[Rfam]
RNA sequence: UGAUCUGCAGACUCAGUACUCGGUGUAGAGUCUGUGUGAUUCAGAAGAGCAGCUACAUCUGAAUACUGGGUCAGUGGAGACGUCA
Number, nucleotide and partner (000 for none) at each position: 001u000002g000003a000004u000005c000006u000007g000008c000009a000010g000011a000012c000013u069014c068015a067016g066017u065018a064019c000020u062021c061022g060023g058024u057025g056026u055027a054028g053029a000030g000031u000032c052033u051034g050035u049036g000037u000038g000039a000040u000041u000042c000043a000044g000045a000046a000047g000048a000049g035050c034051a033052g032053c028054u027055a026056c025057a024058u023059c000060u022061g021062a020063a000064u018065a017066c016067u015068g014069g013070g000071u000072c000073a000074g000075u000076g000077g000078a000079g000080a000081c000082g000083u000084c000085a000

Source information: This 85-nucleotide RNA sequence from Danio rerio belongs to the Rfam family "mir-221 microRNA precursor family". Lineage of the source: Eukaryota > Teleostomi > Osteoglossocephalai > Ostariophysi > Danio. On this family, see Yao et al., J Virol 2008: "MicroRNA profile of Marek's disease virus-transformed T-cell line MSB-1: predominance of virus-encoded microRNAs".